RNA sequence: UGAAAUGGAUAACAGUUUUUUCGUAUAAUCUUGGGAAUUGGCCCGAGAGUUUCUACGAGAUCACCGCAAAUGAUCUGGCUACGAAAAAAAGGAACGUAAUC
Numbered sequence: 001u002g003a004a005a006u007g008g009a010u011a012a013c014a015g016u017u018u019u020u021u022c023g024u025a026u027a028a029u030c031u032u033g034g035g036a037a038u039u040g041g042c043c044c045g046a047g048a049g050u051u052u053c054u055a056c057g058a059g060a061u062c063a064c065c066g067c068a069a070a071u072g073a074u075c076u077g078g079c080u081a082c083g084a085a086a087a088a089a090a091g092g093a094a095c096g097u098a099a100u101c
Stems, first nucleotide, its partner, number of pairs: 018087008029048007058076006
Purine riboswitch aptamer: a 101-nucleotide sequence from Paenibacillus sedimenti.
The base pairs follow the family's consensus structure, which is taken from published work.
Taxonomically the source falls in Paenibacillus (Bacteria, Bacillati, Bacillota, Paenibacillaceae).
Gene Ontology term of the family: purine nucleobase biosynthetic process.